[Rfam]
RNA sequence: AUGCGAUGAGUCGAAUAAUUCUACUUUGUAGAAUUUCGAAGCUAAGGAAUACUGGGAAAUUGGGUUUUCCGCGCAGGAAGCGUGAGUAUUUGUCAAAUUGUGUGAACCUUUUUGACACACUUUUAGUGCCUUUAAAAGCCCUCGAAAGAGGGCUUUUU
Numbered sequence: 001a002u003g004c005g006a007u008g009a010g011u012c013g014a015a016u017a018a019u020u021c022u023a024c025u026u027u028g029u030a031g032a033a034u035u036u037c038g039a040a041g042c043u044a045a046g047g048a049a050u051a052c053u054g055g056g057a058a059a060u061u062g063g064g065u066u067u068u069c070c071g072c073g074c075a076g077g078a079a080g081c082g083u084g085a086g087u088a089u090u091u092g093u094c095a096a097a098u099u100g101u102g103u104g105a106a107c108c109u110u111u112u113u114g115a116c117a118c119a120c121u122u123u124u125a126g127u128g129c130c131u132u133u134a135a136a137a138g139c140c141c142u143c144g145a146a147a148g149a150g151g152g153c154u155u156u157u158u
Stems, first nucleotide, its partner, number of pairs: 012038004019033006044132004048090004072082003091117007118128004138153006
Dot-bracket structure: ...........((((...((((((...)))))).)))).....((((((((....................(((.....)))....))))(((((((.............)))))))((((...)))))))).....((((((....)))))).....
Annotation
A member of the RNA family "MarS sRNA" from Lactococcus lactis, 158 nucleotides long. It is annotated as a small RNA. Interacts with the 5'UTR of the mga transcript (the multiple virulence gene regulator gene) and was renamed MarS for mag-activating regulatory sRNA. In MarS deletion strains expression of mga and several Mga-activated genes is reduced. This down-regulation of virulence factors leads to increased susceptibility of the deletion strain to phagocytosis, reduced adherence to human keratinocytes. Gene Ontology terms of the family: positive regulation of translation, ncRNA-mediated and mRNA 5'-UTR binding. Rfam's curators put it in the seed alignment.